[Rfam]
RNA sequence: CCCACACUUUAGGGGUGUCUGUUAAACAAACGGGCUGAGAUUUUACCCUUUGAACCUGAUUUCUAGAUCAUACUAGCGUAGGGAAAAGUAGAUGACUUUUG
Numbered sequence: 001c002c003c004a005c006a007c008u009u010u011a012g013g014g015g016u017g018u019c020u021g022u023u024a025a026a027c028a029a030a031c032g033g034g035c036u037g038a039g040a041u042u043u044u045a046c047c048c049u050u051u052g053a054a055c056c057u058g059a060u061u062u063c064u065a066g067a068u069c070a071u072a073c074u075a076g077c078g079u080a081g082g083g084a085a086a087a088g089u090a091g092a093u094g095a096c097u098u099u100u101g
Base pairs, nucleotide, nucleotide: 006089007088008087009086010085011049012048013047014046017035018034019033020032021031022030023029055082056081057080058079063076064075065074066073